[Rfam]
RNA sequence: AAAAAGUCAUAUGACUGACGGAAGUGGAAAAAACCACAUGGAGUAUGAUCGUGAACUAAAGCCGACCGUCUGGGCUAAGAAA
Numbered sequence: 001a002a003a004a005a006g007u008c009a010u011a012u013g014a015c016u017g018a019c020g021g022a023a024g025u026g027g028a029a030a031a032a033a034c035c036a037c038a039u040g041g042a043g044u045a046u047g048a049u050c051g052u053g054a055a056c057u058a059a060a061g062c063c064g065a066c067c068g069u070c071u072g073g074g075c076u077a078a079g080a081a082a
Stems, first nucleotide, its partner, number of pairs: 003052001006049007015040001017070005024037004060076004
A member of the RNA family "ZMP/ZTP riboswitch aptamer (pfl RNA motif)" from Hominibacterium faecale, 82 nucleotides long.
The match comes from Rfam's covariance-model search (57 bits).
Rfam links the family to the GO terms regulation of purine nucleotide biosynthetic process and one-carbon metabolic process.
For this family Rfam cites "Parallel Discovery Strategies Provide a Basis for Riboswitch Ligand Design" (Tran et al., Cell Chem Biol, 2020).